The record is a 72-nucleotide RNA sequence from Pseudolycoriella hygida, which matches "mir-34 microRNA precursor family" in Rfam. Rfam 15.1 lists 2,256 matches to the family in 820 species. For this family Rfam cites "Vertebrate microRNA genes" (Lim et al., Science, 2003). From the family's description: Human mir-34a was discovered computationally and later experimentally verified. The mature sequence is excised from the 5' arm of the hairpin. The family is grouped with related families in Rfam's "mir-34 clan". NCBI's taxonomy places the organism under Eukaryota, Metazoa, Arthropoda, Altocrustacea, Pseudolycoriella. It scores 54 bits against the family's covariance model.

RNA sequence: UGCGCUUUGGCAGUGUGGUUAGCUGGUUGUAUGCAUUUGAAUAACAGCCACUAUCCACUCUGUCGCCGCGAU
Numbered sequence: 001u002g003c004g005c006u007u008u009g010g011c012a013g014u015g016u017g018g019u020u021a022g023c024u025g026g027u028u029g030u031a032u033g034c035a036u037u038u039g040a041a042u043a044a045c046a047g048c049c050a051c052u053a054u055c056c057a058c059u060c061u062g063u064c065g066c067c068g069c070g071a072u
Base pairs, nucleotide, nucleotide: 003070004069005068009064010063012061013060015058016057017056018055020053021052022051024050025049026048027047028046029045030044